narK RNA: a 68-nucleotide RNA.
RNA sequence: GGCGCGUGACUUGCUAGGAACACACAGAGCAGUCAACGCUGAUUGCCCAUUCACGACAAAGGCGCCGU
Numbered sequence: 001g002g003c004g005c006g007u008g009a010c011u012u013g014c015u016a017g018g019a020a021c022a023c024a025c026a027g028a029g030c031a032g033u034c035a036a037c038g039c040u041g042a043u044u045g046c047c048c049a050u051u052c053a054c055g056a057c058a059a060a061g062g063c064g065c066c067g068u
Stems, first nucleotide, its partner, number of pairs: 029046006